c-di-GMP-I-GGC riboswitch aptamer: an 89-nucleotide RNA sequence from Cohnella lupini. The literature on the family includes a 2010 paper in Biochemistry by Smith et al., "Structural and biochemical determinants of ligand binding by the c-di-GMP riboswitch ". A search with the family's covariance model found it, with a score of 65 bits. The base pairs follow the family's consensus structure, which is taken from published work. Gene Ontology term of the family: cyclic-di-GMP binding. NCBI's taxonomy places the organism under Bacteria, Bacillati, Bacilli, Paenibacillaceae, Cohnella. Clan: c-di-GMP_I riboswitch clan.

[Rfam]
RNA sequence: ACAGAAAAAGGCAAACCAGCGGAAACGCUGGGACGCAAAGCUACGGAUCUAGAGACCGAAUUUCGGUUAUGACCGCCGAGCCGCCACGC
Numbered sequence: 001a002c003a004g005a006a007a008a009a010g011g012c013a014a015a016c017c018a019g020c021g022g023a024a025a026c027g028c029u030g031g032g033a034c035g036c037a038a039a040g041c042u043a044c045g046g047a048u049c050u051a052g053a054g055a056c057c058g059a060a061u062u063u064c065g066g067u068u069a070u071g072a073c074c075g076c077c078g079a080g081c082c083g084c085c086a087c088g089c
Base pairs, nucleotide, nucleotide: 004085011036012035016031017030018029019028020027021026034075040081041080042079044078045077046076048072049071